[Rfam]
RNA sequence: UAAUCUGAGGGCGAUGGUGUUCGCCGAUAACUAUUUAUUGAAUAACAAUAGAUUAAUGACGCCUAUUGAAGG
Numbered sequence: 001u002a003a004u005c006u007g008a009g010g011g012c013g014a015u016g017g018u019g020u021u022c023g024c025c026g027a028u029a030a031c032u033a034u035u036u037a038u039u040g041a042a043u044a045a046c047a048a049u050a051g052a053u054u055a056a057u058g059a060c061g062c063c064u065a066u067u068g069a070a071g072g
Base pairs, nucleotide, nucleotide: 010025011024012023013022016063017062018061019060020059021058033053034052035051036050037049038048039047040046
Shown here is a 72-nucleotide RNA from Enterococcus rivorum, a member of the family "Fluoride riboswitch aptamer (crcB RNA motif)".